[Rfam]
RNA sequence: CUUUCCGAGGAGCGUUGCAGCGUCUUUCCCCCCGAUACCGGUGUGCGGCAGGGACGCGAGGCUCGGAUCAUCAUUUUGCAACGACGCUCGCCCACG
Number, nucleotide and partner (000 for none) at each position: 001c000002u000003u000004u067005c066006c065007g064008a063009g000010g000011a000012g000013c000014g000015u000016u000017g000018c000019a000020g000021c056022g055023u054024c053025u052026u051027u000028c000029c000030c000031c000032c000033c000034g000035a000036u000037a000038c000039c000040g000041g000042u000043g000044u000045g000046c000047g000048g000049c000050a000051g026052g025053g024054a023055c022056g021057c000058g000059a000060g000061g000062c000063u008064c007065g006066g005067a004068u000069c000070a000071u000072c000073a000074u000075u000076u000077u000078g000079c000080a000081a000082c000083g000084a000085c000086g000087c000088u000089c000090g000091c000092c000093c000094a000095c000096g000
RNA: SAH (S-adenosyl-L-homocysteine) riboswitch aptamer
Organism: Paracidovorax valerianellae